Annotation:
Rfam assigns this 146-nucleotide RNA sequence from Malus baccata to the family "small nucleolar RNA snoR134". A search with the family's covariance model found it, with a score of 92 bits. For this family Rfam cites "Mining small RNA sequencing data: a new approach to identify small nucleolar RNAs in Arabidopsis" (Chen and Wu, Nucleic Acids Res, 2009). Pairs were carried over by alignment from the consensus structure, which was predicted with RNAalifold.
[Rfam]
RNA sequence: AUGCAUGAUGCACAUCGGGCAUCUCUUAGAGUAUUUUCACUGAAGAAGAAAGCCCCAAUGCUCGUGCAAAAACGUCGGCGUCAAGUGUUGUAGUUUAGCCUCGCUUUACUCCACGGCUUUUCUGUGUCAAAUCGACUGCUACAUCU
Numbered sequence: 001a002u003g004c005a006u007g008a009u010g011c012a013c014a015u016c017g018g019g020c021a022u023c024u025c026u027u028a029g030a031g032u033a034u035u036u037u038c039a040c041u042g043a044a045g046a047a048g049a050a051a052g053c054c055c056c057a058a059u060g061c062u063c064g065u066g067c068a069a070a071a072a073c074g075u076c077g078g079c080g081u082c083a084a085g086u087g088u089u090g091u092a093g094u095u096u097a098g099c100c101u102c103g104c105u106u107u108a109c110u111c112c113a114c115g116g117c118u119u120u121u122c123u124g125u126g127u128c129a130a131a132u133c134g135a136c137u138g139c140u141a142c143a144u145c146u
Stems, first nucleotide, its partner, number of pairs: 003067006010061002017055004022049002024046003078139002080136003086129002089126005098117003